FMN riboswitch aptamer (RFN element): a 128-nucleotide RNA sequence.
It scores 88 bits against the family's covariance model.
Its family is annotated with FMN binding in the Gene Ontology.
RNA sequence: GCGUGCAACUGGGGUCGGUGGAAUUCCGAGCCGGCGGUGAGAGUCCGCGACCCGAUGGCAGCCAGCCACCGGUUGACCAGGUGGAACUCCUGGACCGACGGUCAGAGUCCGGAUGGGAAGUCGCACGC
Numbered sequence: 001g002c003g004u005g006c007a008a009c010u011g012g013g014g015u016c017g018g019u020g021g022a023a024u025u026c027c028g029a030g031c032c033g034g035c036g037g038u039g040a041g042a043g044u045c046c047g048c049g050a051c052c053c054g055a056u057g058g059c060a061g062c063c064a065g066c067c068a069c070c071g072g073u074u075g076a077c078c079a080g081g082u083g084g085a086a087c088u089c090c091u092g093g094a095c096c097g098a099c100g101g102u103c104a105g106a107g108u109c110c111g112g113a114u115g116g117g118a119a120g121u122c123g124c125a126c127g128c
Stems, first nucleotide, its partner, number of pairs: 003126004008121003016028003030108002032097002034048004043095002052072002077093005099111003